A member of the RNA family "Small nucleolar RNA SNORA73 family" from Ictidomys tridecemlineatus, 184 nucleotides long. On this family, see Enright et al., RNA 1996: "5'ETS rRNA processing facilitated by four small RNAs: U14, E3, U17, and U3". By type it is an H/ACA-box small nucleolar RNA. From the family's description: U17 (SNORA73A and SNORA73B) also known as E1 belongs to the H/ACA class of small nucleolar RNAs (snoRNAs). Vertebrate U17 is intron-encoded and ranges in length from 200-230 nucleotides, longer than most snoRNAs. The match comes from Rfam's covariance-model search (168 bits). The organism belongs to Ictidomys, within Eukaryota.
[Rfam]
RNA sequence: CCAACGUGGAUAACCCAGGAGGUCACUCUCCCCGGGCUCUGUCCAGGUGGCAUAGGGGAGCAUAGGGCUCUGCCCCAUGAUGUACAGUCCCUUUCCACAAUGUUGGACAUGAAGCUGGGCUUUGUGUCUGCACCUGCAUAUUCCUACGACUUCUCAGUGGAGACAAACCAUGCAGGAAACAAUA
Numbered sequence: 001c002c003a004a005c006g007u008g009g010a011u012a013a014c015c016c017a018g019g020a021g022g023u024c025a026c027u028c029u030c031c032c033c034g035g036g037c038u039c040u041g042u043c044c045a046g047g048u049g050g051c052a053u054a055g056g057g058g059a060g061c062a063u064a065g066g067g068c069u070c071u072g073c074c075c076c077a078u079g080a081u082g083u084a085c086a087g088u089c090c091c092u093u094u095c096c097a098c099a100a101u102g103u104u105g106g107a108c109a110u111g112a113a114g115c116u117g118g119g120c121u122u123u124g125u126g127u128c129u130g131c132a133c134c135u136g137c138a139u140a141u142u143c144c145u146a147c148g149a150c151u152u153c154u155c156a157g158u159g160g161a162g163a164c165a166a167a168c169c170a171u172g173c174a175g176g177a178a179a180c181a182a183u184a
Stems, first nucleotide, its partner, number of pairs: 001106007008044005014036003018029004047098004056091004060085001062083003065078001133176007150162004
Dot-bracket structure: ((((((((((((.(((.((((....))))....)))...)))))..((((.....(((((.((((............)..))).)..))))...)))).)))))))..........................(((((((..........((((.....)))).......)))))))........